t44 RNA: a 90-nucleotide RNA sequence from Parahaliea aestuarii. The match comes from Rfam's covariance-model search (59 bits). NCBI's taxonomy places the organism under Bacteria, Pseudomonadati, Gammaproteobacteria, Cellvibrionales, Parahaliea. The family's consensus secondary structure was predicted with LocARNA.
RNA sequence: GCGGGAAAACACUAACGCCGCACACAUAUCGCAACCUCUCCCAGGGUGCCGGUUCGCCGGUUUGGGGCGGGGGAUAUGUGGAGGACUAAC
Numbered sequence: 001g002c003g004g005g006a007a008a009a010c011a012c013u014a015a016c017g018c019c020g021c022a023c024a025c026a027u028a029u030c031g032c033a034a035c036c037u038c039u040c041c042c043a044g045g046g047u048g049c050c051g052g053u054u055c056g057c058c059g060g061u062u063u064g065g066g067g068c069g070g071g072g073g074a075u076a077u078g079u080g081g082a083g084g085a086c087u088a089a090c
Stems, first nucleotide, its partner, number of pairs: 023080008035071003039067005048061005

The family's RNA type in Rfam is small RNA.